This 54-nucleotide RNA belongs to the Rfam family "terC RNA". Rfam's curators put it in the seed alignment.

[Rfam]
RNA sequence: CCGCCAGGCCGGGCCCCUCUGGCAACCGCAAGGUUGCGAUGUCGGACUGGAAUU
Numbered sequence: 001c002c003g004c005c006a007g008g009c010c011g012g013g014c015c016c017c018u019c020u021g022g023c024a025a026c027c028g029c030a031a032g033g034u035u036g037c038g039a040u041g042u043c044g045g046a047c048u049g050g051a052a053u054u
Base pairs, nucleotide, nucleotide: 006048007047009045010044011043012042022037023036024035025034026033027032